Bacterial RNase P class A: a 386-nucleotide RNA sequence from Thiomicrospira cyclica. It scores 318 bits against the family's covariance model. The family's consensus secondary structure is taken from published work. Its family is annotated with ribonuclease P activity, tRNA processing and dimeric ribonuclease P complex in the Gene Ontology. The source organism's lineage runs through Bacteria, Pseudomonadota, Thiotrichales, Thiomicrospira and Thiomicrospira cyclica.
RNA sequence: CAAGUGAGUUGGACGAUCGCGGAAUGCCAAGCAUUCGGAGGAAAGUCCGGGCACCACAGAGCAGAAUGCCAGUUAACGACUGGGCGGUGUGAGCCGACGGAAAGUGCAGCAGAGAGUAGACCGCCGAUGGCGCUUAGCGCACAGGUAAGGGUGAAAGGGUGGGGUAAGAGCCCACCGCGCAGCUGGUAACAGUUUGUGGCAUGGUAAACCCCAUUCGGUGCAAGACCAAAUAGGAAAGCAGGUUAAACUUCGGUUUAACACAGCGUGGCUCGCGCUGGUUUUCGGGUAGGUUGCUUGAGGGCGGUAGUGAUGCCUCUCCUAGAUGAAUGAUCGUCACCCCAGGCCUGCUUGGGGUACAGAACCCGGCUUACAGACUCACUUAUUUU
Numbered sequence: 001c002a003a004g005u006g007a008g009u010u011g012g013a014c015g016a017u018c019g020c021g022g023a024a025u026g027c028c029a030a031g032c033a034u035u036c037g038g039a040g041g042a043a044a045g046u047c048c049g050g051g052c053a054c055c056a057c058a059g060a061g062c063a064g065a066a067u068g069c070c071a072g073u074u075a076a077c078g079a080c081u082g083g084g085c086g087g088u089g090u091g092a093g094c095c096g097a098c099g100g101a102a103a104g105u106g107c108a109g110c111a112g113a114g115a116g117u118a119g120a121c122c123g124c125c126g127a128u129g130g131c132g133c134u135u136a137g138c139g140c141a142c143a144g145g146u147a148a149g150g151g152u153g154a155a156a157g158g159g160u161g162g163g164g165u166a167a168g169a170g171c172c173c174a175c176c177g178c179g180c181a182g183c184u185g186g187u188a189a190c191a192g193u194u195u196g197u198g199g200c201a202u203g204g205u206a207a208a209c210c211c212c213a214u215u216c217g218g219u220g221c222a223a224g225a226c227c228a229a230a231u232a233g234g235a236a237a238g239c240a241g242g243u244u245a246a247a248c249u250u251c252g253g254u255u256u257a258a259c260a261c262a263g264c265g266u267g268g269c270u271c272g273c274g275c276u277g278g279u280u281u282u283c284g285g286g287u288a289g290g291u292u293g294c295u296u297g298a299g300g301g302c303g304g305u306a307g308u309g310a311u312g313c314c315u316c317u318c319c320u321a322g323a324u325g326a327a328u329g330a331u332c333g334u335c336a337c338c339c340c341a342g343g344c345c346u347g348c349u350u351g352g353g354g355u356a357c358a359g360a361a362c363c364c365g366g367c368u369u370a371c372a373g374a375c376u377c378a379c380u381u382a383u384u385u386u
Stems, first nucleotide, its partner, number of pairs: 002381009011371001012335007020038001022036006043369003047366005052220004059271004064216005069083005084098001085096004099211002104209002106205002121150002123146003128143002158176006177200001178198005183192003224292004234283006262276005299318003303314004